[Rfam]
RNA sequence: GGUUCGAUGCCACGUCGCCGGUAGCAACGGCUAUGACCGGCGAUGUCAUGAUUGAACCAAUAUCAAACUCUUUCGCAUCCUGAUAGGAACCUGUGGAUCGAUAUCCACCGUUCGUUCACGGAGCCGUUUUGUGCGAUUACAAUU
Numbered sequence: 001g002g003u004u005c006g007a008u009g010c011c012a013c014g015u016c017g018c019c020g021g022u023a024g025c026a027a028c029g030g031c032u033a034u035g036a037c038c039g040g041c042g043a044u045g046u047c048a049u050g051a052u053u054g055a056a057c058c059a060a061u062a063u064c065a066a067a068c069u070c071u072u073u074c075g076c077a078u079c080c081u082g083a084u085a086g087g088a089a090c091c092u093g094u095g096g097a098u099c100g101a102u103a104u105c106c107a108c109c110g111u112u113c114g115u116u117c118a119c120g121g122a123g124c125c126g127u128u129u130u131g132u133g134c135g136a137u138u139a140c141a142a143u144u
Stems, first nucleotide, its partner, number of pairs: 002057007009049001013045006020038003024031002073136005086125002091121003095117004